[Rfam]
RNA sequence: GAGCGCCUGAUAUGUCUGGUAUUCUUGGGUUGAUCUGGUCCAGCCGAGUAAUAUUAGACAUAUCGAGUGCUUU
Numbered sequence: 001g002a003g004c005g006c007c008u009g010a011u012a013u014g015u016c017u018g019g020u021a022u023u024c025u026u027g028g029g030u031u032g033a034u035c036u037g038g039u040c041c042a043g044c045c046g047a048g049u050a051a052u053a054u055u056a057g058a059c060a061u062a063u064c065g066a067g068u069g070c071u072u073u
Base pairs, nucleotide, nucleotide: 008065009064010063011062012061013060014059015058016057017056018055019054020053021052022051028045029044030043031042
Description:
The family of this 73-nucleotide RNA sequence from Strongyloides stercoralis is "mir-50 microRNA precursor family". The family is grouped with related families in Rfam's "mir-50 clan". The base pairs follow the family's consensus structure, which was predicted with RNAalifold. A reference for the family is Kato et al. (2009), "Dynamic expression of small non-coding RNAs, including novel microRNAs and piRNAs/21U-RNAs, during Caenorhabditis elegans development", Genome Biol. Its family is annotated with miRNA-mediated post-transcriptional gene silencing and RISC complex in the Gene Ontology.